Shown here is a 103-nucleotide RNA sequence from Shewanella baltica, a member of the family "Group II catalytic intron D1-D4-1".
Rfam's curators write: Group II introns are found in rRNA, tRNA and mRNA of organelles in fungi, plants and protists, and also in mRNA in bacteria.
The pairing is the family consensus, mapped onto this sequence.
The family has 237 seed sequences and 2,508 matches in Rfam 15.1.

RNA sequence: CGCAUGACGGGGCAACUCGGCAUGUGAUUAAGCAGAAGUCAGCAGACGGCAUAGUAGCCCAACGCCCAUCGCCCAUCGCAAUGGAUGGGACAUGGUGAAGGCC
Numbered sequence: 001c002g003c004a005u006g007a008c009g010g011g012g013c014a015a016c017u018c019g020g021c022a023u024g025u026g027a028u029u030a031a032g033c034a035g036a037a038g039u040c041a042g043c044a045g046a047c048g049g050c051a052u053a054g055u056a057g058c059c060c061a062a063c064g065c066c067c068a069u070c071g072c073c074c075a076u077c078g079c080a081a082u083g084g085a086u087g088g089g090a091c092a093u094g095g096u097g098a099a100g101g102c103c
Stems, first nucleotide, its partner, number of pairs: 001026002004023003008019004038047003048103003057096003
Dot-bracket structure: ((.(((.((((....)))).))).))...........(((....)))(((......(((..................................)))....)))
A reference for the family is Lehmann and Schmidt (2003), "Group II introns: structure and catalytic versatility of large natural ribozymes", Crit Rev Biochem Mol Biol. Taxonomically the source falls in Shewanella baltica (Bacteria, Pseudomonadati, Pseudomonadota, Shewanella).